[Rfam]
RNA: Erse small RNA
RNA sequence: CCGGCGGAAGUGCUUGCGCCGUGGACUGGCGACAUCGCCGCUGAGGGUAUCAGCAAAUUUCUGCGCGGCGGCGCGCGCCUUUUUCGCCACGGCUUUACGCGCCAGCAGCGCUAUCUCUCUGAAGCCUUAACGGAAGAGUGGCGGGUGGCACCGGGCGCGCUGGAAAUCGCCUGGUUUGCCGAAGAGACAGCGGCCGCUGAACGUGCCGCGGACGCCUUAGCCAAACGACUGGAUAAACUGGAGGGCAAAUGA
Numbered sequence: 001c002c003g004g005c006g007g008a009a010g011u012g013c014u015u016g017c018g019c020c021g022u023g024g025a026c027u028g029g030c031g032a033c034a035u036c037g038c039c040g041c042u043g044a045g046g047g048u049a050u051c052a053g054c055a056a057a058u059u060u061c062u063g064c065g066c067g068g069c070g071g072c073g074c075g076c077g078c079c080u081u082u083u084u085c086g087c088c089a090c091g092g093c094u095u096u097a098c099g100c101g102c103c104a105g106c107a108g109c110g111c112u113a114u115c116u117c118u119c120u121g122a123a124g125c126c127u128u129a130a131c132g133g134a135a136g137a138g139u140g141g142c143g144g145g146u147g148g149c150a151c152c153g154g155g156c157g158c159g160c161u162g163g164a165a166a167u168c169g170c171c172u173g174g175u176u177u178g179c180c181g182a183a184g185a186g187a188c189a190g191c192g193g194c195c196g197c198u199g200a201a202c203g204u205g206c207c208g209c210g211g212a213c214g215c216c217u218u219a220g221c222c223a224a225a226c227g228a229c230u231g232g233a234u235a236a237a238c239u240g241g242a243g244g245g246c247a248a249a250u251g252a
Base pairs, nucleotide, nucleotide: 001244002243005240006082007081008080010078011077012054013053014052016050019047020046022044027040028039029038030037031036062075063074064073065072066071085214086213088211090208091207092206093205095203100143101142102141103140104139119124148179149178150177152174154172155171159167161165186198188196190194216232217231222227